Annotation: Shown here is a 509-nucleotide sequence from Nonomuraea zeae, a member of the family "Saccharopolyspora sRNA 350". A search with the family's covariance model found it, with a score of 52 bits. The base pairs follow the family's consensus structure, which was predicted with RNAfold. By type it is an antisense RNA. For this family Rfam cites "Prediction and characterization of small non-coding RNAs related to secondary metabolites in Saccharopolyspora erythraea" (Liu et al., PLoS One, 2013).
RNA sequence: CUGACGGUGAACAGCCAGCGCGGGUCCUCCUGCCCGAGCGCCUCGUCGCCGAACUGGUCGCCGUCGGCGAUGACGCCGUGGACCUCCGUGCCGCCGUAUUUGCCGGUGGACAGGCGGUCGAGGCGGCCGUGGGCGAUGACGUACGUCUCGGUGACCGGGUCGCCGGCCUCGACGAGGAUCUCUCCCGCCUGGAUGUCCCUAGGGGUGAACGUCGCGGCGAUCGCCUCCAGGACGCCGAGGUCGUCAAACCCGCGCAGCGGGGGCAGCUCCGCGAGCGUCUCCGGGAUGAUGCGCACGUCGUCGGCGCCGUUCUGCACGACGCUCACCCGGCCGCGGCCGACCGUGUGCGUGAGCCUGCGGUUGACCCGGUAGGUGCCGCCCCGCACGUCGACCCAGGGCAGCAUGCGCAGCAGCCAGCGGGAGGUGAUGGCCUGCAUCUGCGGGCGGGUCUUGGUGGUGGUGGCCAGAUUGCGGGCGGCCCUGGUGUCCAGGCUCAGCCGCGGUUCGGU
Numbered sequence: 001c002u003g004a005c006g007g008u009g010a011a012c013a014g015c016c017a018g019c020g021c022g023g024g025u026c027c028u029c030c031u032g033c034c035c036g037a038g039c040g041c042c043u044c045g046u047c048g049c050c051g052a053a054c055u056g057g058u059c060g061c062c063g064u065c066g067g068c069g070a071u072g073a074c075g076c077c078g079u080g081g082a083c084c085u086c087c088g089u090g091c092c093g094c095c096g097u098a099u100u101u102g103c104c105g106g107u108g109g110a111c112a113g114g115c116g117g118u119c120g121a122g123g124c125g126g127c128c129g130u131g132g133g134c135g136a137u138g139a140c141g142u143a144c145g146u147c148u149c150g151g152u153g154a155c156c157g158g159g160u161c162g163c164c165g166g167c168c169u170c171g172a173c174g175a176g177g178a179u180c181u182c183u184c185c186c187g188c189c190u191g192g193a194u195g196u197c198c199c200u201a202g203g204g205g206u207g208a209a210c211g212u213c214g215c216g217g218c219g220a221u222c223g224c225c226u227c228c229a230g231g232a233c234g235c236c237g238a239g240g241u242c243g244u245c246a247a248a249c250c251c252g253c254g255c256a257g258c259g260g261g262g263g264c265a266g267c268u269c270c271g272c273g274a275g276c277g278u279c280u281c282c283g284g285g286a287u288g289a290u291g292c293g294c295a296c297g298u299c300g301u302c303g304g305c306g307c308c309g310u311u312c313u314g315c316a317c318g319a320c321g322c323u324c325a326c327c328c329g330g331c332c333g334c335g336g337c338c339g340a341c342c343g344u345g346u347g348c349g350u351g352a353g354c355c356u357g358c359g360g361u362u363g364a365c366c367c368g369g370u371a372g373g374u375g376c377c378g379c380c381c382c383g384c385a386c387g388u389c390g391a392c393c394c395a396g397g398g399c400a401g402c403a404u405g406c407g408c409a410g411c412a413g414c415c416a417g418c419g420g421g422a423g424g425u426g427a428u429g430g431c432c433u434g435c436a437u438c439u440g441c442g443g444g445c446g447g448g449u450c451u452u453g454g455u456g457g458u459g460g461u462g463g464c465c466a467g468a469u470u471g472c473g474g475g476c477g478g479c480c481c482u483g484g485u486g487u488c489c490a491g492g493c494u495c496a497g498c499c500g501c502g503g504u505u506c507g508g509u
Stems, first nucleotide, its partner, number of pairs: 006393003011388002016383001018331002022327001025325001026321001028319002036315001038313001040311001042309001045308001047306006054230002057221008065116002068113001075103001077102002080099001082097002086093001122213004128204001130201001135200001138197003147192002153189001155187001157185003160178002164174001166173001231299004240290006249283001252280001254278001257276002261270002332345004357379004364374003394434004399429002402426003406421001408419001410418001440479002443476001445474001447472001451467005480508002483505003487502001489500001491498001